[Rfam]
The record is a 72-nucleotide sequence from Actinocrinis puniceicyclus, which matches "ASpks TB sRNA" in Rfam.
NCBI's taxonomy places the organism under Bacteria, Bacillati, Actinomycetes, Catenulisporales, Actinocrinis.
It scores 65 bits against the family's covariance model.
Rfam classes the family as an antisense RNA.
RNA sequence: CUUGACCGACCCCAGCCACAGCGGACCGGUGGUCCGGUCCUGCCCAUACGUCGCCAACAACGCCUGAGCCUC
Numbered sequence: 001c002u003u004g005a006c007c008g009a010c011c012c013c014a015g016c017c018a019c020a021g022c023g024g025a026c027c028g029g030u031g032g033u034c035c036g037g038u039c040c041u042g043c044c045c046a047u048a049c050g051u052c053g054c055c056a057a058c059a060a061c062g063c064c065u066g067a068g069c070c071u072c
Stems, first nucleotide, its partner, number of pairs: 015026001016024002033067002035062002041056002044053001046051001